[Rfam]
Nucleotides: 066
Stems, first nucleotide, its partner, number of pairs: 002065003006061003014054003018050007029042003
Number, partner (000 for none) and nucleotide at each position: 001000a002065g003064u004063g005000a006061a007060c008059g009000a010000a011000u012000g013000a014054a015053g016052a017000a018050u019049u020048a021047u022046u023045c024044c025000g026000a027000a028000a029042u030041c031040c032000u033000g034000a035000g036000c037000a038000g039000a040031g041030g042029a043000a044024g045023g046022a047021a048020u049019a050018g051000c052016u053015c054014u055000g056000a057000c058000a059008u060007g061006u062000c063004c064003a065002c066000a